[Rfam]
RNA sequence: GUGGGUGGAAGCUCAUCGUAGAGAUCACGUGCUGAGUGCUCGUCACUCCACCAAUCAUCUCGGGGAAGGUCUGAGACAAGAGCCAAUAGUCGCCCCCGCAGGGCGUCACCUGAUCCAGGUGAGCGAGUCAACAGAGAAUGUGUGCGCGUGUGAGCGACUCCGGCAGGAGAAGCCUGGUGACGUCACGACGACGCCGGUGGAUGCUGCGCUCACCGGCUUGGAAACGCUCGCGGCUGGCGAAUGAGUUCGAUGUAUGAGUUGGGGCACAGCCCCAGAACCCAAUUCAGACUACUCUCCUCCCAC
Numbered sequence: 001g002u003g004g005g006u007g008g009a010a011g012c013u014c015a016u017c018g019u020a021g022a023g024a025u026c027a028c029g030u031g032c033u034g035a036g037u038g039c040u041c042g043u044c045a046c047u048c049c050a051c052c053a054a055u056c057a058u059c060u061c062g063g064g065g066a067a068g069g070u071c072u073g074a075g076a077c078a079a080g081a082g083c084c085a086a087u088a089g090u091c092g093c094c095c096c097c098g099c100a101g102g103g104c105g106u107c108a109c110c111u112g113a114u115c116c117a118g119g120u121g122a123g124c125g126a127g128u129c130a131a132c133a134g135a136g137a138a139u140g141u142g143u144g145c146g147c148g149u150g151u152g153a154g155c156g157a158c159u160c161c162g163g164c165a166g167g168a169g170a171a172g173c174c175u176g177g178u179g180a181c182g183u184c185a186c187g188a189c190g191a192c193g194c195c196g197g198u199g200g201a202u203g204c205u206g207c208g209c210u211c212a213c214c215g216g217c218u219u220g221g222a223a224a225c226g227c228u229c230g231c232g233g234c235u236g237g238c239g240a241a242u243g244a245g246u247u248c249g250a251u252g253u254a255u256g257a258g259u260u261g262g263g264g265c266a267c268a269g270c271c272c273c274a275g276a277a278c279c280c281a282a283u284u285c286a287g288a289c290u291a292c293u294c295u296c297c298u299c300c301c302a303c
Base pairs, nucleotide, nucleotide: 001303002302003301004300007297008296009295012258013257014256015255016254021061022060023059024058034048035047036046037045038044071287072286073285074284075283081235082234083233084232091105092104093103094102095101106122107121108120109119110118111117123231124230125229126228127227128226142217143216259275260274261273262272263271264270265269